[Rfam]
RNA: RNase MRP
Organism: Esox lucius
RNA sequence: GGGCAUUCGGAAGGCUUGUUAACUAGGCUACUAGCAGAGAACGCUGUUUCUCCAUUAUCGCCUAGGGGAAAGUCCCCGGACACGCGGCAGAAAGUGCCCUGCUUGAUUGCAGUUACGUGGCUUGUGCGUUACUAUCUGUAGCUGAGAUGUUCUGAUGAACUGAGCUUGGUACUCACAGGUCUCCUUUGUCAGUGCGAAAGUCAUGCAAGUGCUAACGCAUCAACAGAACGGGGCUUAUUCUCAGAAUGCU
Number, nucleotide and partner (000 for none) at each position: 001g000002g250003g249004c248005a247006u246007u245008c244009g000010g242011a241012a000013g000014g210015c209016u208017u207018g206019u205020u000021a000022a000023c065024u064025a063026g062027g061028c060029u000030a000031c000032u000033a000034g000035c000036a000037g052038a051039g050040a049041a048042c000043g000044c000045u000046g000047u000048u041049u040050c039051u038052c037053c000054a000055u000056u000057a000058u000059c000060g028061c027062c026063u025064a024065g023066g000067g000068g000069a000070a236071a235072g234073u000074c233075c232076c231077c230078g000079g000080a000081c000082a000083c000084g000085c000086g098087g097088c096089a095090g000091a000092a000093a000094g000095u089096g088097c087098c086099c112100u111101g110102c109103u000104u000105g000106a000107u000108u000109g102110c101111a100112g099113u000114u000115a000116c000117g181118u000119g000120g000121c179122u178123u177124g176125u175126g174127c000128g000129u000130u171131a170132c169133u000134a000135u000136c000137u000138g000139u000140a166141g165142c164143u000144g000145a000146g000147a000148u000149g160150u159151u158152c157153u000154g000155a000156u000157g152158a151159a150160c149161u000162g000163a000164g142165c141166u140167u000168g000169g132170u131171a130172c000173u000174c126175a125176c124177a123178g122179g121180u000181c117182u000183c000184c000185u000186u000187u000188g000189u000190c000191a000192g000193u000194g000195c000196g000197a000198a000199a000200g000201u000202c000203a000204u000205g019206c018207a017208a016209g015210u014211g000212c000213u000214a000215a000216c000217g000218c000219a000220u000221c000222a000223a000224c000225a000226g000227a000228a000229c000230g077231g076232g075233g074234c072235u071236u070237a000238u000239u000240c000241u011242c010243a000244g008245a007246a006247u005248g004249c003250u002